[Rfam]
Shown here is an 84-nucleotide sequence from Piliocolobus tephrosceles, a member of the family "mir-548 microRNA precursor family".
RNA sequence: UUAUAGGUUGGUGCGAAAGUAAUUGCGGUUUUUGCUAUUGAAAGUAAUAGCAAAAACCGCAAUUACUUUUGCACUAACCUAAUA
Numbered sequence: 001u002u003a004u005a006g007g008u009u010g011g012u013g014c015g016a017a018a019g020u021a022a023u024u025g026c027g028g029u030u031u032u033u034g035c036u037a038u039u040g041a042a043a044g045u046a047a048u049a050g051c052a053a054a055a056a057c058c059g060c061a062a063u064u065a066c067u068u069u070u071g072c073a074c075u076a077a078c079c080u081a082a083u084a
Stems, first nucleotide, its partner, number of pairs: 001084001004081037

Description:
The match comes from Rfam's covariance-model search (92 bits).